[Rfam]
RNA sequence: UGAUAAUAAAAAGCGCCAGAACUUUAUAAAAAAGUUGACGAGGACUGGAGAUAAUCGAAAUUUCGGCGGAUACUCCAGAGGGAGUUACACCCUAAAUAAACUUACAAAACUAAAAAGUAAUUUUUAGGACAAAAAAGUUUUAGUAACAAUCC
Dot-bracket structure: ...................((((((.....)))))).........(((((....((((....))))......)))))(.(((.(...).))))....(((((.......(((((((....)))))))........)))))............
Numbered sequence: 001u002g003a004u005a006a007u008a009a010a011a012a013g014c015g016c017c018a019g020a021a022c023u024u025u026a027u028a029a030a031a032a033a034g035u036u037g038a039c040g041a042g043g044a045c046u047g048g049a050g051a052u053a054a055u056c057g058a059a060a061u062u063u064c065g066g067c068g069g070a071u072a073c074u075c076c077a078g079a080g081g082g083a084g085u086u087a088c089a090c091c092c093u094a095a096a097u098a099a100a101c102u103u104a105c106a107a108a109a110c111u112a113a114a115a116a117g118u119a120a121u122u123u124u125u126a127g128g129a130c131a132a133a134a135a136a137g138u139u140u141u142a143g144u145a146a147c148a149a150u151c152c
Stems, first nucleotide, its partner, number of pairs: 020036006046077005055066004078093001080092003084088001098140005110127007

The family of this 152-nucleotide RNA sequence from Cetobacterium ceti is "glmS glucosamine-6-phosphate activated ribozyme aptamer". A reference for the family is Winkler et al. (2004), "Control of gene expression by a natural metabolite-responsive ribozyme", Nature. NCBI's taxonomy places the organism under Bacteria, Fusobacteriati, Fusobacteriia, Fusobacteriaceae, Cetobacterium. A search with the family's covariance model found it, with a score of 90 bits. The family's RNA type in Rfam is riboswitch.